[Rfam]
RNA sequence: CCGGAGAAUCUGUAAAGCUCAGGAGGGAUAGCGCCACCAAAUAUAAGAAAGAUUACCCGAAUAUAUUCAUUUUCGUCGCCCUGCUUUCCGGCGCUAUCUAUCCUGAGUUUCAUGGCUUCUUCUU
Numbered sequence: 001c002c003g004g005a006g007a008a009u010c011u012g013u014a015a016a017g018c019u020c021a022g023g024a025g026g027g028a029u030a031g032c033g034c035c036a037c038c039a040a041a042u043a044u045a046a047g048a049a050a051g052a053u054u055a056c057c058c059g060a061a062u063a064u065a066u067u068c069a070u071u072u073u074c075g076u077c078g079c080c081c082u083g084c085u086u087u088c089c090g091g092c093g094c095u096a097u098c099u100a101u102c103c104u105g106a107g108u109u110u111c112a113u114g115g116c117u118u119c120u121u122c123u124u
Stems, first nucleotide, its partner, number of pairs: 010115001016109009026099010
Rfam assigns this 124-nucleotide RNA sequence from Cucumis melo to the family "MIR390 microRNA precursor family". The family has 16 seed sequences and 649 matches in Rfam 15.1. The source organism's lineage runs through Eukaryota, Euphyllophyta, Mesangiospermae, Pentapetalae and Cucumis. For this family Rfam cites "Computational prediction of miRNAs in Arabidopsis thaliana" (Adai et al., Genome Res, 2005). The family's consensus secondary structure was predicted with WAR.